[Rfam]
RNA: Selenocysteine insertion sequence 1
RNA sequence: GACGCUUCAUGACGGGAAGGACUGAAAUGUCUGGUAGACGCCUGGUCUUUCCCUGAUGUCCCUGCGGC
Numbered sequence: 001g002a003c004g005c006u007u008c009a010u011g012a013c014g015g016g017a018a019g020g021a022c023u024g025a026a027a028u029g030u031c032u033g034g035u036a037g038a039c040g041c042c043u044g045g046u047c048u049u050u051c052c053c054u055g056a057u058g059u060c061c062c063u064g065c066g067g068c
Stems, first nucleotide, its partner, number of pairs: 001068001003066003014053010029039003